[Rfam]
RNA sequence: UGAAAAAUGAAACUCUGAGCUGCUCCGACCUAAGUCGACCCGAUAUGGUGCUGCAGCCGUGGCUUUAAGUCACCAGGGUGUAAGGUAGAAAUGCCUGCGCCUCCCGAAUUGGAAAGGUGUUUUAUGCUAUCUCAG
Numbered sequence: 001u002g003a004a005a006a007a008u009g010a011a012a013c014u015c016u017g018a019g020c021u022g023c024u025c026c027g028a029c030c031u032a033a034g035u036c037g038a039c040c041c042g043a044u045a046u047g048g049u050g051c052u053g054c055a056g057c058c059g060u061g062g063c064u065u066u067a068a069g070u071c072a073c074c075a076g077g078g079u080g081u082a083a084g085g086u087a088g089a090a091a092u093g094c095c096u097g098c099g100c101c102u103c104c105c106g107a108a109u110u111g112g113a114a115a116g117g118u119g120u121u122u123u124a125u126g127c128u129a130u131c132u133c134a135g
Base pairs, nucleotide, nucleotide: 004128011121012120013119015117016116019057020056021055022054023053026050028049029048030047034044035043036042037041059073060072061071062070063069076102077101078100079099080098081097083096084095085094086093087092103112104111
RNA: Molybdenum/Tungsten riboswitch aptamer (Moco RNA motif)